A member of the RNA family "MIR398 microRNA precursor family" from Senna tora, 118 nucleotides long.
A search with the family's covariance model found it, with a score of 75 bits.
Rfam links the family to the GO terms miRNA-mediated post-transcriptional gene silencing and RISC complex.

[Rfam]
RNA sequence: GUAAAACCCAGAGGAGUGAGGCUGAGAACACAAGGUAGAUUGGUUUCUCUAUAUAUUGGAAUUGGUGUGUGUUUGGCUAAUUUACUUUGUGUUCUCAGGUCACCCCUUUGGGGGCACC
Numbered sequence: 001g002u003a004a005a006a007c008c009c010a011g012a013g014g015a016g017u018g019a020g021g022c023u024g025a026g027a028a029c030a031c032a033a034g035g036u037a038g039a040u041u042g043g044u045u046u047c048u049c050u051a052u053a054u055a056u057u058g059g060a061a062u063u064g065g066u067g068u069g070u071g072u073u074u075g076g077c078u079a080a081u082u083u084a085c086u087u088u089g090u091g092u093u094c095u096c097a098g099g100u101c102a103c104c105c106c107u108u109u110g111g112g113g114g115c116a117c118c
Base pairs, nucleotide, nucleotide: 007112008111011108012107013106014105016103017102018101019100024096025095026094027093028092029091030090031089032088033087034086035085036084037083